This 171-nucleotide RNA sequence from Brevibacillus sp. WF146 belongs to the Rfam family "Ribosomal protein L10 leader".
Taxonomically the source falls in Brevibacillus (Bacteria, Bacillati, Bacilli, Paenibacillaceae).
From the family's description: This family is a putative r-protein leader autoregulatory structure found in B. subtilis and other low-GC Gram-positive bacteria. It is located in the 5' untranslated regions of mRNAs encoding ribosomal proteins L10 and L12 (rplJ-rplL).
Rfam classes the family as a cis-regulatory leader.

RNA sequence: UGAAAAGAAUAUGUCAUGCCGUAGACAGAAGGUGCGGAGCUUGGCUUGUCCAAGCGAUGCUUAAUAUCCCUCCGAGGCGUGUAAUGGUACGGAAAAAGGAGCCGCUGCGUUCCUUUGACGAUAGAACAUUAUGCCCUCGUGUGUCUACGAGGGCAUUCUUCUUUUUCGAGG
Numbered sequence: 001u002g003a004a005a006a007g008a009a010u011a012u013g014u015c016a017u018g019c020c021g022u023a024g025a026c027a028g029a030a031g032g033u034g035c036g037g038a039g040c041u042u043g044g045c046u047u048g049u050c051c052a053a054g055c056g057a058u059g060c061u062u063a064a065u066a067u068c069c070c071u072c073c074g075a076g077g078c079g080u081g082u083a084a085u086g087g088u089a090c091g092g093a094a095a096a097a098g099g100a101g102c103c104g105c106u107g108c109g110u111u112c113c114u115u116u117g118a119c120g121a122u123a124g125a126a127c128a129u130u131a132u133g134c135c136c137u138c139g140u141g142u143g144u145c146u147a148c149g150a151g152g153g154c155a156u157u158c159u160u161c162u163u164u165u166u167c168g169a170g171g
Stems, first nucleotide, its partner, number of pairs: 028072002031069002034060003131156010